About this RNA
A member of the RNA family "Bacterial large subunit ribosomal RNA" from Isosphaera pallida, 326 nucleotides of a longer RNA. Pairs were carried over by alignment from the consensus structure, which is taken from published work. The sequence is in the family's curated seed alignment.
RNA sequence: GACAAGGGGGGUGGGAAGCCCCCCCGCCGAAAGCACAAGGGUUCCUGGGGAAGGUCAAUCCGCCCAGGGUCAGCCGGGACCUAAGAAUGCCUCCGACCGGAGGGUUCGAUGGACAGGGGGCCAACAUUCCUCCGCCCGGCGGGAAGGACGAUUCGGAGAGGACGCCGCGUCAGGGAACGGCGGGGUGCUGGAAACCCCCGCGCCGCAAGGCCGACGGCUGGACCGGAAGCGAACCCCCAAGCGGCCACGAAAAGCCCUCCGAGGACAACCCGUCGGCCCGUACCGCAAUCCGACACAGGUGUGCCUGGCGAGUAUCCUCAGGCGUU
Numbered sequence: 001g002a003c004a005a006g007g008g009g010g011g012u013g014g015g016a017a018g019c020c021c022c023c024c025c026g027c028c029g030a031a032a033g034c035a036c037a038a039g040g041g042u043u044c045c046u047g048g049g050g051a052a053g054g055u056c057a058a059u060c061c062g063c064c065c066a067g068g069g070u071c072a073g074c075c076g077g078g079a080c081c082u083a084a085g086a087a088u089g090c091c092u093c094c095g096a097c098c099g100g101a102g103g104g105u106u107c108g109a110u111g112g113a114c115a116g117g118g119g120g121c122c123a124a125c126a127u128u129c130c131u132c133c134g135c136c137c138g139g140c141g142g143g144a145a146g147g148a149c150g151a152u153u154c155g156g157a158g159a160g161g162a163c164g165c166c167g168c169g170u171c172a173g174g175g176a177a178c179g180g181c182g183g184g185g186u187g188c189u190g191g192a193a194a195c196c197c198c199c200g201c202g203c204c205g206c207a208a209g210g211c212c213g214a215c216g217g218c219u220g221g222a223c224c225g226g227a228a229g230c231g232a233a234c235c236c237c238c239a240a241g242c243g244g245c246c247a248c249g250a251a252a253a254g255c256c257c258u259c260c261g262a263g264g265a266c267a268a269c270c271c272g273u274c275g276g277c278c279c280g281u282a283c284c285g286c287a288a289u290c291c292g293a294c295a296c297a298g299g300u301g302u303g304c305c306u307g308g309c310g311a312g313u314a315u316c317c318u319c320a321g322g323c324g325u326u
Base pairs, nucleotide, nucleotide: 006024007023008022009021010020011019025324026323027322028321033304034303035302036301039284040283044068045067046066047065048064049063053061054060075280076279077278078277080112081111085107086106087105090103092101093100094099116133117132118131119130120129136276137275138274139273140272141271142270143269146266154263158259159258160257161256163254167245168244169242170241173237174236175235178231179230180201181200182199183198184197185196202218203217204216205215290299291298307317308316